[Rfam]
Record summary
Rfam assigns this 112-nucleotide sequence from Arachis hypogaea to the family "mir-172 microRNA precursor family". Pairs were carried over by alignment from the consensus structure, which was predicted with PFOLD. The family has 11 seed sequences and 2,076 matches in Rfam 15.1. From the family's description: mir-172 has been experimentally verified in Arabidopsis thaliana. This family is thought to target mRNAs coding for APETALA2-like transcription factors. The mature sequence is excised from the 3' arm of the hairpin. Rfam links the family to the GO terms miRNA-mediated post-transcriptional gene silencing and RISC complex.
RNA sequence: UUGAUUGCAGGUGCAGCACCUUCAAGAUUCACAUAUAUACAAAUCUAACUAGCUCCAUGGAGAUGGUAGAGAUUAGUUAUGAGAAUCUUGAUGAUGCUGCAUCAGCAAUAAA
Numbered sequence: 001u002u003g004a005u006u007g008c009a010g011g012u013g014c015a016g017c018a019c020c021u022u023c024a025a026g027a028u029u030c031a032c033a034u035a036u037a038u039a040c041a042a043a044u045c046u047a048a049c050u051a052g053c054u055c056c057a058u059g060g061a062g063a064u065g066g067u068a069g070a071g072a073u074u075a076g077u078u079a080u081g082a083g084a085a086u087c088u089u090g091a092u093g094a095u096g097c098u099g100c101a102u103c104a105g106c107a108a109u110a111a112a
Base pairs, nucleotide, nucleotide: 010103011102012101013100014099015098016097017096018095020093022091023090024089025088026087027086028085029084030083032081033080
For this family Rfam cites "Computational Identification of Plant MicroRNAs and Their Targets, Including a Stress-Induced miRNA" (Jones-Rhoades and Bartel, Mol Cell, 2004). The match comes from Rfam's covariance-model search (86 bits).